chrB-a RNA: a 74-nucleotide sequence from Roseicella aerolata. A search with the family's covariance model found it, with a score of 65 bits. Pairs were carried over by alignment from the consensus structure, which is taken from published work. The source organism's lineage runs through Bacteria, Pseudomonadati, Acetobacterales, Roseomonadaceae and Roseicella. The family's RNA type in Rfam is cis-regulatory element.

RNA sequence: CGCAUGGGGUUCCGCGAUCACCCCGUGAGGCCUCGGCCCAAGCGUCGCGUCCAUCCCCUGGAGUGGACGCCAUG
Number, nucleotide and partner (000 for none) at each position: 001c000002g000003c000004a000005u025006g024007g023008g022009g021010u020011u000012c000013c000014g000015c000016g000017a000018u000019c000020a010021c009022c008023c007024c006025g005026u000027g000028a000029g000030g000031c000032c000033u000034c000035g000036g000037c000038c000039c000040a000041a000042g000043c000044g000045u000046c000047g070048c069049g068050u067051c066052c065053a000054u000055c000056c000057c000058c000059u000060g000061g000062a000063g000064u000065g052066g051067a050068c049069g048070c047071c000072a000073u000074g000